[Rfam]
The family of this 109-nucleotide RNA from Stappia taiwanensis is "SAM-I/IV (S-adenosyl methionine) riboswitch aptamer". NCBI's taxonomy places the organism under Bacteria, Pseudomonadota, Alphaproteobacteria, Hyphomicrobiales, Stappia. On this family, see Weinberg et al., RNA 2008: "The aptamer core of SAM-IV riboswitches mimics the ligand-binding site of SAM-I riboswitches". It scores 65 bits against the family's covariance model.
RNA sequence: AGCCGUCAUCAAGAGAAGGGCUGGCGCCCUCGCCAACCUGCCCGACCGGGCAAGGUGGUCUCCCUCAACCGGGGAUGUGGCCGGGAAACCGGCAACGAAACGGUCGACU
Numbered sequence: 001a002g003c004c005g006u007c008a009u010c011a012a013g014a015g016a017a018g019g020g021c022u023g024g025c026g027c028c029c030u031c032g033c034c035a036a037c038c039u040g041c042c043c044g045a046c047c048g049g050g051c052a053a054g055g056u057g058g059u060c061u062c063c064c065u066c067a068a069c070c071g072g073g074g075a076u077g078u079g080g081c082c083g084g085g086a087a088a089c090c091g092g093c094a095a096c097g098a099a100a101c102g103g104u105c106g107a108c109u
Stems, first nucleotide, its partner, number of pairs: 007077004015031001017030005032059003037055003040051003044105005080093004